[Rfam]
RNA: mir-4436 microRNA precursor family
RNA sequence: GCCUUAUUUGUCCGCUUCUGGCUGCCCUGCCCCUCGAAUUUGCUCCAUGAUUUGGGCAGGGCAGGCAGAAGUGGACAAGUGAGGA
Numbered sequence: 001g002c003c004u005u006a007u008u009u010g011u012c013c014g015c016u017u018c019u020g021g022c023u024g025c026c027c028u029g030c031c032c033c034u035c036g037a038a039u040u041u042g043c044u045c046c047a048u049g050a051u052u053u054g055g056g057c058a059g060g061g062c063a064g065g066c067a068g069a070a071g072u073g074g075a076c077a078a079g080u081g082a083g084g085a
Stems, first nucleotide, its partner, number of pairs: 002084018022064011036045002